[Rfam]
RNA sequence: UAUUAGGUUGGUGCAAAAAAUAAUGUCGUUUUUGACGUUCAACGUAACGUCAAAAACGACGUUAUUUUUUGCACCAACCUAAUA
Numbered sequence: 001u002a003u004u005a006g007g008u009u010g011g012u013g014c015a016a017a018a019a020a021u022a023a024u025g026u027c028g029u030u031u032u033u034g035a036c037g038u039u040c041a042a043c044g045u046a047a048c049g050u051c052a053a054a055a056a057c058g059a060c061g062u063u064a065u066u067u068u069u070u071g072c073a074c075c076a077a078c079c080u081a082a083u084a
Base pairs, nucleotide, nucleotide: 001084002083003082004081005080006079007078008077009076010075011074012073013072014071015070016069017068018067019066020065021064022063023062024061025060026059027058028057029056030055031054032053033052034051035050036049037048038047039046